The record is a 74-nucleotide RNA from Roseobacter ponti, which matches "Singlet oxygen resistance RNA X" in Rfam. A search with the family's covariance model found it, with a score of 92 bits. SorX (RSs2461)like SorY is a singlet oxygen induced sRNA that counteracts oxidative stress by targeting mRNA for a transporter in Rhodobacter. On this family, see Peng et al., RNA Biol 2016: "Regulation of a polyamine transporter by the conserved 3' UTR-derived sRNA SorX confers resistance to singlet oxygen and organic hydroperoxides in Rhodobacter sphaeroides". The base pairs follow the family's consensus structure.
RNA sequence: AUCCCGUGCAUGUCCGGGUAAUGACAUGCAACCUCCCUGUUGGACUUGGCCGGGCCUCGUGCCCGGCCCUUUUU
Numbered sequence: 001a002u003c004c005c006g007u008g009c010a011u012g013u014c015c016g017g018g019u020a021a022u023g024a025c026a027u028g029c030a031a032c033c034u035c036c037c038u039g040u041u042g043g044a045c046u047u048g049g050c051c052g053g054g055c056c057u058c059g060u061g062c063c064c065g066g067c068c069c070u071u072u073u074u
Stems, first nucleotide, its partner, number of pairs: 008029007048068008